Rfam assigns this 50-nucleotide sequence from Seohaeicola zhoushanensis to the family "SAM/SAH riboswitch aptamer". The literature on the family includes a 2019 paper in Nucleic Acids Res by Weickhmann et al., "The structure of the SAM/SAH-binding riboswitch". The base pairs follow the family's consensus structure, which is taken from published work. The source organism's lineage runs through Bacteria, Pseudomonadati, Pseudomonadota, Alphaproteobacteria and Seohaeicola. A search with the family's covariance model found it, with a score of 60 bits.
RNA sequence: AGCGCGUCACAACGGCUUCCUGGCGUGGCGCGAUAUUCAUCAAUGGAGCA
Numbered sequence: 001a002g003c004g005c006g007u008c009a010c011a012a013c014g015g016c017u018u019c020c021u022g023g024c025g026u027g028g029c030g031c032g033a034u035a036u037u038c039a040u041c042a043a044u045g046g047a048g049c050a
Stems, first nucleotide, its partner, number of pairs: 004031007013022002015049003019046002